[Rfam]
RNA sequence: GCCUGAAAAAGGCAAACCAUUCGAAAGGAUGGGGCGCAAAACCACUGGUCUAAAUCCCGGAAAUUCGGGACAUGACAGCAGGGCUGCCGGG
Number, nucleotide and partner (000 for none) at each position: 001g000002c000003c000004u000005g000006a000007a000008a000009a000010a000011g000012g037013c036014a000015a000016a000017c032018c031019a030020u029021u028022c027023g000024a000025a000026a000027g022028g021029a020030u019031g018032g017033g000034g000035c000036g013037c012038a000039a000040a085041a000042c083043c082044a000045c081046u080047g079048g076049u075050c074051u000052a000053a000054a000055u070056c069057c068058c067059g066060g065061a000062a000063a000064u000065u060066c059067g058068g057069g056070a055071c000072a000073u000074g050075a049076c048077a000078g000079c047080a046081g045082g043083g042084c000085u040086g000087c000088c000089g000090g000091g000
Rfam assigns this 91-nucleotide RNA from Pelobacter propionicus to the family "c-di-GMP-I riboswitch aptamer". The sequence is in the family's curated seed alignment. Taxonomically the source falls in Pelobacter propionicus (Bacteria, Thermodesulfobacteriota, Desulfuromonadaceae, Pelobacter). On this family, see Weinberg et al., Nucleic Acids Res 2007: "Identification of 22 candidate structured RNAs in bacteria using the CMfinder comparative genomics pipeline".